RNA sequence: AAAAAGCCCGCUUUGCGUCGGCAUAAGCGGGCUUCGUGUGCGGGGAAAGCUGUAAGCGCGAUGGCUGUGCUGCUGCUCACCGUUCGCUUUAGCUGUUUUGGGUUUCCCCGCGUCCGCAAGCUGAGAUCAAAUCGACGCAAGACCCGAUGGUAACACUGCGCCCGGAUUUUCGCGC
Dot-bracket structure: ...(((((((((.(((....)))..)))))))))....((((.....(((...((..(.((...............)).)..)).)))((((((.....(((....)))((....)).))))))...........))))..................((((..........))))
RNA: Burkholderia sRNA Bp2_Cand287_SIPHT